This 68-nucleotide RNA sequence from Peribacillus cavernae belongs to the Rfam family "Bacillaceae-1 RNA".
RNA sequence: CUUGAAGGAACGUCGACUAAAAUCCGCCACGUCCUGUGGCGAACAUCGACGUCAGCACAUCCUGUGCA
Numbered sequence: 001c002u003u004g005a006a007g008g009a010a011c012g013u014c015g016a017c018u019a020a021a022a023u024c025c026g027c028c029a030c031g032u033c034c035u036g037u038g039g040c041g042a043a044c045a046u047c048g049a050c051g052u053c054a055g056c057a058c059a060u061c062c063u064g065u066g067c068a
Stems, first nucleotide, its partner, number of pairs: 011051006026040005055067004

The family's RNA type in Rfam is small RNA.